Annotation
Rfam assigns this 99-nucleotide sequence from Empedobacter falsenii to the family "SAM riboswitch aptamer (S box leader)". The organism belongs to Empedobacter, within Bacteria.
RNA sequence: GCUUUAUAAAGAAAGAUGGAGGGAAUAGGCCCGUUGAAAUCUUAGCAACCCAAAGUAUAGUUGGGUGCUAAAUCCUACUCAAAUAGAGAAAGAUAAGGA
Dot-bracket structure: .((((((.....(((((...(((..[[[[)))......)))))((((.(((((.......)))))))))...(]]]](((.....)))..).)))))).

The base pairs follow the family's consensus structure, which is taken from published work.